[Rfam]
The family of this 175-nucleotide RNA sequence from Oryza sativa is "MIR807 microRNA precursor family". Taxonomically the source falls in Oryza sativa (Eukaryota, Poaceae, Oryzoideae, Oryzinae).
RNA sequence: AACCGCACUAUCAAUGAAUGAAUUCACCCGCGAGAUGAUGUGACUGUUUCAACUAGGACGAGAACAUGGCAUCUUAUUACUAGCCAUCCCAUGAAAUUAAUAGGAUGCCACGUCAUCAUCUAGAUAAAACAACCACGUCAUCUCAUGUGUGAAUCCAUUCAUCGAUAGUGUGGUU
Number, nucleotide and partner (000 for none) at each position: 001a175002a174003c173004c172005g171006c170007a169008c000009u167010a166011u165012c164013a000014a162015u161016g000017a159018a158019u157020g000021a000022a154023u153024u152025c151026a150027c149028c000029c000030g146031c000032g144033a143034g000035a141036u140037g139038a138039u137040g000041u135042g134043a000044c000045u131046g130047u129048u128049u000050c000051a125052a000053c000054u122055a121056g000057g120058a119059c000060g000061a000062g000063a000064a113065c112066a000067u000068g000069g108070c107071a106072u105073c104074u103075u102076a101077u100078u099079a098080c000081u000082a000083g000084c000085c000086a097087u096088c000089c000090c000091a000092u000093g000094a000095a000096a087097u086098u079099a078100a077101u076102a075103g074104g073105a072106u071107g070108c069109c000110a000111c000112g065113u064114c000115a000116u000117c000118a000119u058120c057121u055122a054123g000124a000125u051126a000127a000128a048129a047130c046131a045132a000133c000134c042135a041136c000137g039138u038139c037140a036141u035142c000143u033144c032145a000146u030147g000148u000149g027150u026151g025152a024153a023154u022155c000156c000157a019158u018159u017160c000161a015162u014163c000164g012165a011166u010167a009168g000169u007170g006171u005172g004173g003174u002175u001
A reference for the family is Luo et al. (2006), "Rice embryogenic calli express a unique set of microRNAs, suggesting regulatory roles of microRNAs in plant post-embryogenic development", FEBS Lett.